[Rfam]
RNA sequence: GAAGGUUUGUGGCCCUUCGGCGUCGUCCUUUCGGGGGGUGGCGUCAAACCACCUCGAGCUGCGUUGGCUGAAGACCGUCGUGGUGAGCGUCGAGGAAAAGGCGGCGGGAGAGUCGUCAGGU
Numbered sequence: 001g002a003a004g005g006u007u008u009g010u011g012g013c014c015c016u017u018c019g020g021c022g023u024c025g026u027c028c029u030u031u032c033g034g035g036g037g038g039u040g041g042c043g044u045c046a047a048a049c050c051a052c053c054u055c056g057a058g059c060u061g062c063g064u065u066g067g068c069u070g071a072a073g074a075c076c077g078u079c080g081u082g083g084u085g086a087g088c089g090u091c092g093a094g095g096a097a098a099a100g101g102c103g104g105c106g107g108g109a110g111a112g113u114c115g116u117c118a119g120g121u
Stems, first nucleotide, its partner, number of pairs: 001018005019045006027038004050120001052095006058084002061081003065077003100117006

Record summary:
Group II catalytic intron D1-D4-2: a 121-nucleotide sequence from Gordonia asplenii. Rfam's curators write: Group II introns are found in rRNA, tRNA and mRNA of organelles in fungi, plants and protists, and also in mRNA in bacteria. The pairing is the family consensus, mapped onto this sequence. Rfam 15.1 lists 1,231 matches to the family in 625 species. A search with the family's covariance model found it, with a score of 95 bits.